RNA sequence: AAAGUGUGUUAGCUUGGAAUUCUCUGUGUACGAACGUGUGAUGAAGCAGAGGGGAAGGUCUGAGGAGCCAGAUUCGACUGCAAAGUCAGGUGCAGAAAUGCACUCAACGCCCAUCAGAAAACAGCUUAGUUUCAGCCUGAAAGCGACGUUUUGGCCGCCAAUCUUAGUCUAAUUUCCAAGACUCUCAACUCAAUUCAGACUACUCAAUACACUUU
Numbered sequence: 001a002a003a004g005u006g007u008g009u010u011a012g013c014u015u016g017g018a019a020u021u022c023u024c025u026g027u028g029u030a031c032g033a034a035c036g037u038g039u040g041a042u043g044a045a046g047c048a049g050a051g052g053g054g055a056a057g058g059u060c061u062g063a064g065g066a067g068c069c070a071g072a073u074u075c076g077a078c079u080g081c082a083a084a085g086u087c088a089g090g091u092g093c094a095g096a097a098a099u100g101c102a103c104u105c106a107a108c109g110c111c112c113a114u115c116a117g118a119a120a121a122c123a124g125c126u127u128a129g130u131u132u133c134a135g136c137c138u139g140a141a142a143g144c145g146a147c148g149u150u151u152u153g154g155c156c157g158c159c160a161a162u163c164u165u166a167g168u169c170u171a172a173u174u175u176c177c178a179a180g181a182c183u184c185u186c187a188a189c190u191c192a193a194u195u196c197a198g199a200c201u202a203c204u205c206a207a208u209a210c211a212c213u214u215u
Stems, first nucleotide, its partner, number of pairs: 001215004008208003013180007022051005060198005067155003076087004089104006106150004111145001124136003

Shown here is a 215-nucleotide RNA sequence from Theileria parva, a member of the family "Nuclear RNase P". The base pairs follow the family's consensus structure, which is taken from published work. It scores 68 bits against the family's covariance model. The source organism's lineage runs through Eukaryota, Sar, Alveolata, Aconoidasida and Theileria. From the family's description: Ribonuclease P (RNase P) is a ubiquitous endoribonuclease, found in archaea, bacteria and eukarya as well as chloroplasts and mitochondria. Its best characterised activity is the generation of mature 5'-ends of tRNAs by cleaving the 5'-leader elements of precursor-tRNAs. Cellular RNase Ps are ribonucleoproteins. RNA from bacterial RNase Ps retains its catalytic activity in the absence of the protein subunit, i.e. it is a ribozyme. Isolated eukaryotic and archaeal RNase P RNA has not been shown to retain its catalytic function, but is still essential for the catalytic activity of the holoenzyme. Although the archaeal and eukaryotic holoenzyme s have a much greater protein content than the bacterial ones, the RNA cores from all the three lineages are homologous -- helices corresponding to P1, P2, P3, P4, and P10/11 are common to all cellular RNase P RNAs. Yet, there is considerable sequence variation, particularly among the eukaryotic RNAs. Rfam classes the family as a ribozyme.